[Rfam]
RNA: Mammalian CPEB3 ribozyme
RNA sequence: AGUACAGUUUAAGGGGCCAUGGUAGAAGCAUUAACAUUUCAGUCCAUGUCAGAUUCCUAUAGAUUGGUAAUUUCUACU
Numbered sequence: 001a002g003u004a005c006a007g008u009u010u011a012a013g014g015g016g017c018c019a020u021g022g023u024a025g026a027a028g029c030a031u032u033a034a035c036a037u038u039u040c041a042g043u044c045c046a047u048g049u050c051a052g053a054u055u056c057c058u059a060u061a062g063a064u065u066g067g068u069a070a071u072u073u074c075u076a077c078u
Stems, first nucleotide, its partner, number of pairs: 014045004021078007028040001030038001050067001052065004